Rfam assigns this 107-nucleotide sequence from Heyndrickxia oleronia to the family "RNA Staph. aureus E (RoxS)". Its family is annotated with regulation of translational initiation in the Gene Ontology. NCBI's taxonomy places the organism under Bacteria, Bacillati, Bacilli, Caryophanales, Heyndrickxia.

[Rfam]
RNA sequence: GUGAAGUUGAUCACAAACAAACAUAUACCCCUUUGUUUGACCGUGAAAAAUUUCUCCCAUCCCCUUUGUUCGUGUUGAGAAAGGCCUUGUAUUUGCAAGGUCUUUUU
Numbered sequence: 001g002u003g004a005a006g007u008u009g010a011u012c013a014c015a016a017a018c019a020a021a022c023a024u025a026u027a028c029c030c031c032u033u034u035g036u037u038u039g040a041c042c043g044u045g046a047a048a049a050a051u052u053u054c055u056c057c058c059a060u061c062c063c064c065u066u067u068g069u070u071c072g073u074g075u076u077g078a079g080a081a082a083g084g085c086c087u088u089g090u091a092u093u094u095g096c097a098a099g100g101u102c103u104u105u106u107u
Stems, first nucleotide, its partner, number of pairs: 003054006011046004018039006070078002081104010
Dot-bracket structure: ..((((((..((((...((((((..........))))))...))))..))))))...............((.....))..((((((((((....))))))))))...
By type it is a small RNA. Rfam describes the family as follows. It was shown to be regulated by the presence of nitric oxide (NO). In Bacillus subtilis it controls expression of genes with functions related to oxidative stress and oxidation-reduction reactions and it was renamed RoxS (for related to oxidative stress). The literature on the family includes a 2009 paper in Nucleic Acids Res by Geissmann et al., "A search for small noncoding RNAs in Staphylococcus aureus reveals a conserved sequence motif for regulation".